[Rfam]
RNA sequence: UUGCCUAGGGUUAGUAUUACCCCUAGGCAACUUCUGUGUCAUGUGUCA
Numbered sequence: 001u002u003g004c005c006u007a008g009g010g011u012u013a014g015u016a017u018u019a020c021c022c023c024u025a026g027g028c029a030a031c032u033u034c035u036g037u038g039u040c041a042u043g044u045g046u047c048a
Stems, first nucleotide, its partner, number of pairs: 001030010

Shown here is a 48-nucleotide sequence, a member of the family "ssNA-helicase RNA". By type it is a small RNA. Rfam's curators put it in the seed alignment.